[Rfam]
RNA sequence: GCCGCAGGCCGCCUUAUCGCUCUUUGCAAAAAGGGAGGAAAGUCCGGACACCAGAGGGCAGCAUAGCGGGUAACGCCCGUCACCGUGGUAUGCAGAACCGCGGGAGGACAAGUGCAACAGAAAGUAUGUACAGGUAAUGCUGUAGUGAAACCAGGUAAACUCUAUGCGGUGAAAUGCCAUGUAUACCGGCUAUUGUAGGGCUGCCCGCCCGAUGCCGGGGGGUAGGCAGAUUGAUCGCAACAGUAAUGUUGUGUUUAGAUAAAUGAUAAGGGUCCCUCGGGGAUACAGAAUCCGGCUUACAGGCCUGCUUUUUUU
Numbered sequence: 001g002c003c004g005c006a007g008g009c010c011g012c013c014u015u016a017u018c019g020c021u022c023u024u025u026g027c028a029a030a031a032a033g034g035g036a037g038g039a040a041a042g043u044c045c046g047g048a049c050a051c052c053a054g055a056g057g058g059c060a061g062c063a064u065a066g067c068g069g070g071u072a073a074c075g076c077c078c079g080u081c082a083c084c085g086u087g088g089u090a091u092g093c094a095g096a097a098c099c100g101c102g103g104g105a106g107g108a109c110a111a112g113u114g115c116a117a118c119a120g121a122a123a124g125u126a127u128g129u130a131c132a133g134g135u136a137a138u139g140c141u142g143u144a145g146u147g148a149a150a151c152c153a154g155g156u157a158a159a160c161u162c163u164a165u166g167c168g169g170u171g172a173a174a175u176g177c178c179a180u181g182u183a184u185a186c187c188g189g190c191u192a193u194u195g196u197a198g199g200g201c202u203g204c205c206c207g208c209c210c211g212a213u214g215c216c217g218g219g220g221g222g223u224a225g226g227c228a229g230a231u232u233g234a235u236c237g238c239a240a241c242a243g244u245a246a247u248g249u250u251g252u253g254u255u256u257a258g259a260u261a262a263a264u265g266a267u268a269a270g271g272g273u274c275c276c277u278c279g280g281g282g283a284u285a286c287a288g289a290a291u292c293c294g295g296c297u298u299a300c301a302g303g304c305c306u307g308c309u310u311u312u313u314u315u
Stems, first nucleotide, its partner, number of pairs: 001311001004308007011300001012271007020035006040298003044295005049171004056206004061167005066080005081106001083103007107162002112160002114156002129144005175228004186218005198210004236253007
Rfam assigns this 315-nucleotide sequence from Flavobacterium rivuli to the family "Bacterial RNase P class A". It is annotated as a ribozyme.